[Rfam]
RNA sequence: GGAUCUGAGGGCAAUCUGACUGUGACAUCUGUCACCCCAUUGAUUGCCAGGGUUGAUUCAGCUGAUCUGGCUGGCUAGGUGUGUGUCCCCUUUCUCCCUCACUGCUCCAUGUGCGUCCCUCCUGAAGCUGCGCUCUUGGUCGAACAGGAUGACCUUCUUUGAUAGAGGUGUACUGUUCAUCGGUCCAAGGGUAUAUGGUAACUGUGCUCCCAGGCUCAAGGACCAUUUGUAGGAGAACACAGGGUAGUCAAGCUUACACGAAUGCAGACACCUCCAAGUGCAGCACUGCAUGGGUAGGAUGAGAGGAAAU
Numbered sequence: 001g002g003a004u005c006u007g008a009g010g011g012c013a014a015u016c017u018g019a020c021u022g023u024g025a026c027a028u029c030u031g032u033c034a035c036c037c038c039a040u041u042g043a044u045u046g047c048c049a050g051g052g053u054u055g056a057u058u059c060a061g062c063u064g065a066u067c068u069g070g071c072u073g074g075c076u077a078g079g080u081g082u083g084u085g086u087c088c089c090c091u092u093u094c095u096c097c098c099u100c101a102c103u104g105c106u107c108c109a110u111g112u113g114c115g116u117c118c119c120u121c122c123u124g125a126a127g128c129u130g131c132g133c134u135c136u137u138g139g140u141c142g143a144a145c146a147g148g149a150u151g152a153c154c155u156u157c158u159u160u161g162a163u164a165g166a167g168g169u170g171u172a173c174u175g176u177u178c179a180u181c182g183g184u185c186c187a188a189g190g191g192u193a194u195a196u197g198g199u200a201a202c203u204g205u206g207c208u209c210c211c212a213g214g215c216u217c218a219a220g221g222a223c224c225a226u227u228u229g230u231a232g233g234a235g236a237a238c239a240c241a242g243g244g245u246a247g248u249c250a251a252g253c254u255u256a257c258a259c260g261a262a263u264g265c266a267g268a269c270a271c272c273u274c275c276a277a278g279u280g281c282a283g284c285a286c287u288g289c290a291u292g293g294g295u296a297g298g299a300u301g302a303g304a305g306g307a308a309a310u
Stems, first nucleotide, its partner, number of pairs: 001108003006101006013093002018090001024087005030081004035074002037070003042067004046062002117170001118168004122139004127135001140162003147158003202252002207247002210244002214240001215235003276310001284301001286297004
Background: 7SK RNA: a 310-nucleotide sequence from Anhinga rufa. 7SK was discovered as an abundant small nuclear RNA in the mid-70s but a possible function has only recently been suggested. On this family, see Blencowe, Curr Biol 2002: "Transcription: surprising role for an elusive small nuclear RNA". A search with the family's covariance model found it, with a score of 195 bits. Rfam 15.1 lists 49,373 matches to the family in 668 species. The family's consensus secondary structure is taken from published work.